[Rfam]
RNA sequence: AGGAGGAGGAAGGCAAAUGCGCAGCAUUUUUAAAAAUGCCUUCCGACGAUAUGCCGCCGAACCUAGGUGAGGGGGCGUUACAUUGU
Numbered sequence: 001a002g003g004a005g006g007a008g009g010a011a012g013g014c015a016a017a018u019g020c021g022c023a024g025c026a027u028u029u030u031u032a033a034a035a036a037u038g039c040c041u042u043c044c045g046a047c048g049a050u051a052u053g054c055c056g057c058c059g060a061a062c063c064u065a066g067g068u069g070a071g072g073g074g075g076c077g078u079u080a081c082a083u084u085g086u
Stems, first nucleotide, its partner, number of pairs: 008044006015029005053076003057072002061068002
Background
This 86-nucleotide RNA from Roseburia sp. 1XD42-69 belongs to the Rfam family "GA-cis RNA". The family's consensus secondary structure is taken from published work. It is annotated as a small RNA. The match comes from Rfam's covariance-model search (73 bits).